RNA sequence: GUGGAGGUGACUCUAUCAUCUGAAGGAAGUCAGCGGCAAAUUUCCGCCCCGAGGGAUACGAAUCUCAUACAAGGCUAGGCAAUACUGGAUUAGUCUGCACAUCAAGACAAAGUCCUUACUACCGAAGGUGUUACCGAGUAAAUGAGGCGGCGAUAUGGAAAGAAAGUUUAUGCC
Numbered sequence: 001g002u003g004g005a006g007g008u009g010a011c012u013c014u015a016u017c018a019u020c021u022g023a024a025g026g027a028a029g030u031c032a033g034c035g036g037c038a039a040a041u042u043u044c045c046g047c048c049c050c051g052a053g054g055g056a057u058a059c060g061a062a063u064c065u066c067a068u069a070c071a072a073g074g075c076u077a078g079g080c081a082a083u084a085c086u087g088g089a090u091u092a093g094u095c096u097g098c099a100c101a102u103c104a105a106g107a108c109a110a111a112g113u114c115c116u117u118a119c120u121a122c123c124g125a126a127g128g129u130g131u132u133a134c135c136g137a138g139u140a141a142a143u144g145a146g147g148c149g150g151c152g153a154u155a156u157g158g159a160a161a162g163a164a165a166g167u168u169u170a171u172g173c174c
Base pairs, nucleotide, nucleotide: 001016002015003014004013005012006011029174031172032171036167037166041161042160043159044158045157046156047152049150050149051148063147064146065145066144067143068142074139075138076137078135079134081132082131083130084129087115088114089113090112093108094107095106096105